[Rfam]
RNA: Saccharopolyspora sRNA 350
RNA sequence: CGGGCGGUGUACUCCCAGAUGGCGUCGGGGUCGAGCAGCGCGUCCUCGCCGAAAUAGGCCCCGUCGGCGAGCACGCCGAGGACGGCAUCGUCCCCGUAGGGACCGGUGCCGAUCUUCUCGACCCUGCCGUGCGCCAGCAGAUACACCUCGUCGGUCGGGUUGCCGAAGGACGCGAUCACCGACCCCGCGGAGAACUCCCGCUGCUGGCAGCGCUGGGCGAGCUCGGCGAGCACGUCCUCGUCGUCGUACGACCGCAGCGCCGGCAGUUCGGUCAGCUCCGCCGGGAUGACCUCGACGCGAUCACCGGUCUUCACGAACGUGAUGCGGCCGUCGUCCACGGCGUAGGUCAGACGCCGGUUCACGCGGUACGUACCGCCCUGCACGUUCACCCAUGGCAGCGUUCGCAGCAGCCAGCGGGAGCUGAUCUCCUGCAUCUGCGGUGCGGACUUGGUCGUGGUGGCCAGGUUCCGCGCGGCUGCCGUGUCGAGACUCUGCUGCGGCUUGG
Numbered sequence: 001c002g003g004g005c006g007g008u009g010u011a012c013u014c015c016c017a018g019a020u021g022g023c024g025u026c027g028g029g030g031u032c033g034a035g036c037a038g039c040g041c042g043u044c045c046u047c048g049c050c051g052a053a054a055u056a057g058g059c060c061c062c063g064u065c066g067g068c069g070a071g072c073a074c075g076c077c078g079a080g081g082a083c084g085g086c087a088u089c090g091u092c093c094c095c096g097u098a099g100g101g102a103c104c105g106g107u108g109c110c111g112a113u114c115u116u117c118u119c120g121a122c123c124c125u126g127c128c129g130u131g132c133g134c135c136a137g138c139a140g141a142u143a144c145a146c147c148u149c150g151u152c153g154g155u156c157g158g159g160u161u162g163c164c165g166a167a168g169g170a171c172g173c174g175a176u177c178a179c180c181g182a183c184c185c186c187g188c189g190g191a192g193a194a195c196u197c198c199c200g201c202u203g204c205u206g207g208c209a210g211c212g213c214u215g216g217g218c219g220a221g222c223u224c225g226g227c228g229a230g231c232a233c234g235u236c237c238u239c240g241u242c243g244u245c246g247u248a249c250g251a252c253c254g255c256a257g258c259g260c261c262g263g264c265a266g267u268u269c270g271g272u273c274a275g276c277u278c279c280g281c282c283g284g285g286a287u288g289a290c291c292u293c294g295a296c297g298c299g300a301u302c303a304c305c306g307g308u309c310u311u312c313a314c315g316a317a318c319g320u321g322a323u324g325c326g327g328c329c330g331u332c333g334u335c336c337a338c339g340g341c342g343u344a345g346g347u348c349a350g351a352c353g354c355c356g357g358u359u360c361a362c363g364c365g366g367u368a369c370g371u372a373c374c375g376c377c378c379u380g381c382a383c384g385u386u387c388a389c390c391c392a393u394g395g396c397a398g399c400g401u402u403c404g405c406a407g408c409a410g411c412c413a414g415c416g417g418g419a420g421c422u423g424a425u426c427u428c429c430u431g432c433a434u435c436u437g438c439g440g441u442g443c444g445g446a447c448u449u450g451g452u453c454g455u456g457g458u459g460g461c462c463a464g465g466u467u468c469c470g471c472g473c474g475g476c477u478g479c480c481g482u483g484u485c486g487a488g489a490c491u492c493u494g495c496u497g498c499g500g501c502u503u504g505g
Stems, first nucleotide, its partner, number of pairs: 006390004011385002016380001018328001021325001025322003029318001031316002040311001042309001044307002048305001051302002057233001060230001061226003065111004075103001082097004117221004122217002126213002130209001132206002135203003139196002144192001149189002156187004161178002234296003240290006249283002252280001254278001256277003260271003329342004351379001353377001355375003361371003391431002394428002397425001399423002403418001405416001407415001437476002440473001442471005447465006477504002480499003487496002